A member of the RNA family "Rhizobiales sRNA Atu_C8" from Rhizobium sp. BG4, 121 nucleotides long.
RNA sequence: GAAAAUCGCAGCAGCUCUUAUUGUGGUGGGAAAGCGCAUGGGCAGGAUGGUGUAACCAUCCGGCGAUAGCCACCCAUGCGCUAGAUGACAGGCUCCCUCAGGGGCCUUUUUUAUGCCUGAG
Number, nucleotide and partner (000 for none) at each position: 001g000002a000003a000004a000005a000006u000007c028008g000009c026010a000011g000012c000013a000014g000015c000016u000017c000018u000019u000020a000021u000022u000023g000024u000025g000026g009027u000028g007029g117030g116031a000032a114033a082034g081035c080036g079037c078038a077039u076040g075041g074042g073043c000044a000045g061046g060047a059048u058049g057050g056051u000052g000053u000054a000055a000056c050057c049058a048059u047060c046061c045062g000063g070064c069065g000066a000067u000068a000069g064070c063071c000072a000073c042074c041075c040076a039077u038078g037079c036080g035081c034082u033083a000084g000085a000086u000087g108088a000089c000090a107091g106092g105093c104094u103095c102096c101097c000098u000099c000100a000101g096102g095103g094104g093105c092106c091107u090108u087109u000110u000111u000112u000113a000114u032115g000116c030117c029118u000119g000120a000121g000

NCBI's taxonomy places the organism under Bacteria, Pseudomonadati, Hyphomicrobiales, Rhizobiaceae, Rhizobium. The family's RNA type in Rfam is small RNA. Pairs were carried over by alignment from the consensus structure, which was predicted with CMfinder.